[Rfam]
RNA sequence: ACACGAGAAGGGAGGUGGUCCAACGUUGAAGAACGACAGGACUCGUGAGGUGGCUGUCCGCUGACGGACGGCACGUGACCUGACUUUCGCGGGCAUCCGUGUCUGCCGGCGGUGAAUACCAGGCAGUCACCCGGCCCCCGACGCUCCCGGGAACCAGUCCGCCCCGGGCCGCGAGCACCGCUCGCGGAGUCGCGACGGGGGCCGCUUUCU
Numbered sequence: 001a002c003a004c005g006a007g008a009a010g011g012g013a014g015g016u017g018g019u020c021c022a023a024c025g026u027u028g029a030a031g032a033a034c035g036a037c038a039g040g041a042c043u044c045g046u047g048a049g050g051u052g053g054c055u056g057u058c059c060g061c062u063g064a065c066g067g068a069c070g071g072c073a074c075g076u077g078a079c080c081u082g083a084c085u086u087u088c089g090c091g092g093g094c095a096u097c098c099g100u101g102u103c104u105g106c107c108g109g110c111g112g113u114g115a116a117u118a119c120c121a122g123g124c125a126g127u128c129a130c131c132c133g134g135c136c137c138c139c140g141a142c143g144c145u146c147c148c149g150g151g152a153a154c155c156a157g158u159c160c161g162c163c164c165c166g167g168g169c170c171g172c173g174a175g176c177a178c179c180g181c182u183c184g185c186g187g188a189g190u191c192g193c194g195a196c197g198g199g200g201g202c203c204g205c206u207u208u209c210u
Stems, first nucleotide, its partner, number of pairs: 014058006059114005065108001067107001069105002073100003132204009142194003146167002149164003
Dot-bracket structure: .............((((((.................................))))))(((((.(.(.((..(((......................)))...)).)).))))).................(((((((((.(((.((.(((..........))).))........................))).)))))))))......